Rfam assigns this 167-nucleotide RNA from Felis catus to the family "U1 spliceosomal RNA".
Its Rfam clan is "U1 clan".
The literature on the family includes a 2019 paper in Science by Charenton et al., "Mechanism of 5' splice site transfer for human spliceosome activation".

[Rfam]
RNA sequence: AUACUUACCUGGCAGGGGAGAUACCAUGAUCAUCACGGAGGUGGUUUUCCCAGGGCAAGGCUUAUCAAUUGCACUGCGGGUGUGCUGACCUCUGCGAUUUCCCCAAAUGUGGGAAACUCUACCGCAUCAUUUGUGGUAGUGGGGGACUGCGUUCGCACUUUCCCCUA
Numbered sequence: 001a002u003a004c005u006u007a008c009c010u011g012g013c014a015g016g017g018g019a020g021a022u023a024c025c026a027u028g029a030u031c032a033u034c035a036c037g038g039a040g041g042u043g044g045u046u047u048u049c050c051c052a053g054g055g056c057a058a059g060g061c062u063u064a065u066c067a068a069u070u071g072c073a074c075u076g077c078g079g080g081u082g083u084g085c086u087g088a089c090c091u092c093u094g095c096g097a098u099u100u101c102c103c104c105a106a107a108u109g110u111g112g113g114a115a116a117c118u119c120u121a122c123c124g125c126a127u128c129a130u131u132u133g134u135g136g137u138a139g140u141g142g143g144g145g146a147c148u149g150c151g152u153u154c155g156c157a158c159u160u161u162c163c164c165c166u167a
Stems, first nucleotide, its partner, number of pairs: 012125002015122001016051006023045005052093004059086003063082004096119002098116003102112002141166006149158001151156001

The match comes from Rfam's covariance-model search (129 bits).
By type it is a spliceosomal small nuclear RNA.